[Rfam]
RNA sequence: UGCACGCAUGACUAAGUCGCUUUGGAUAAAAGCGUCUACUAAAUGGCAUAUA
Numbered sequence: 001u002g003c004a005c006g007c008a009u010g011a012c013u014a015a016g017u018c019g020c021u022u023u024g025g026a027u028a029a030a031a032g033c034g035u036c037u038a039c040u041a042a043a044u045g046g047c048a049u050a051u052a
Stems, first nucleotide, its partner, number of pairs: 009041001010039001013038002018034006

The record is a 52-nucleotide RNA sequence from Oncorhynchus mykiss, which matches "UnaL2 LINE 3' element" in Rfam. The organism belongs to Oncorhynchus, within Eukaryota. The family's RNA type in Rfam is cis-regulatory element.